Description: A member of the RNA family "mir-7552 microRNA precursor family" from Poecilia reticulata, 65 nucleotides long.
RNA sequence: UUACAAUUAAAGGAUAUUUCUCGUGGAUGUCAUAAAAAAACGGAAAUAUCUCUUAAUUGUUUGGU
Numbered sequence: 001u002u003a004c005a006a007u008u009a010a011a012g013g014a015u016a017u018u019u020c021u022c023g024u025g026g027a028u029g030u031c032a033u034a035a036a037a038a039a040a041c042g043g044a045a046a047u048a049u050c051u052c053u054u055a056a057u058u059g060u061u062u063g064g065u
Stems, first nucleotide, its partner, number of pairs: 003060008012051010024037001
NCBI's taxonomy places the organism under Eukaryota, Teleostomi, Neoteleostei, Eurypterygia, Poecilia. Pairs were carried over by alignment from the consensus structure, which was predicted with RNAalifold.